[Rfam]
This 124-nucleotide RNA sequence from Gossypium stocksii belongs to the Rfam family "MIR7504 microRNA precursor family". Rfam 15.1 lists 7,343 matches to the family in 61 species. Its family is annotated with miRNA-mediated post-transcriptional gene silencing and RISC complex in the Gene Ontology.
RNA sequence: AGUAGGAGCAUGACAAAUUAGAUUUUUCUUUCUGAUUUUUAGCAUUUUUAAUUGGAUUUAAAUUUUUUGUAGAAGGAAAAAGCUGAAAAUUAAAAGGAAAAAUCUGAUUUAUCAUGCUUCUAUU
Number, nucleotide and partner (000 for none) at each position: 001a124002g123003u122004a121005g120006g119007a118008g117009c116010a115011u114012g113013a112014c000015a110016a109017a108018u107019u106020a105021g104022a103023u102024u101025u100026u099027u098028c000029u096030u095031u094032c000033u092034g091035a090036u089037u088038u087039u086040u000041a084042g083043c000044a000045u080046u079047u078048u077049u000050a000051a000052u000053u000054g000055g000056a000057u000058u000059u000060a000061a000062a000063u000064u000065u000066u000067u000068u000069g000070u000071a000072g000073a000074a000075g000076g000077a048078a047079a046080a045081a000082g000083c042084u041085g000086a039087a038088a037089a036090u035091u034092a033093a000094a031095a030096g029097g000098a027099a026100a025101a024102a023103u022104c021105u020106g019107a018108u017109u016110u015111a000112u013113c012114a011115u010116g009117c008118u007119u006120c005121u004122a003123u002124u001